[Rfam]
Nucleotides: 088
Stems, first nucleotide, its partner, number of pairs: 012037002017032006040082004046078003049073003056067003
Number, partner (000 for none) and nucleotide at each position: 001000a002000u003000u004000u005000g006000a007000g008000a009000a010000a011000a012037g013036c014000a015000a016000a017032c018031u019030u020029a021028u022027u023000g024000a025000a026000a027022g028021a029020u030019a031018a032017g033000g034000a035000c036013g037012c038000a039000a040082a041081g042080c043079u044000a045000u046078a047077g048076g049073g050072c051071c052000u053000a054000a055000u056067g057066c058065a059000u060000c061000a062000u063000u064000c065058u066057g067056u068000u069000a070000u071051g072050g073049u074000a075000g076048c077047c078046u079043g080042g081041u082040u083000g084000c085000c086000g087000a088000g
c-di-GMP-I riboswitch aptamer: an 88-nucleotide RNA sequence from Pontibacillus marinus.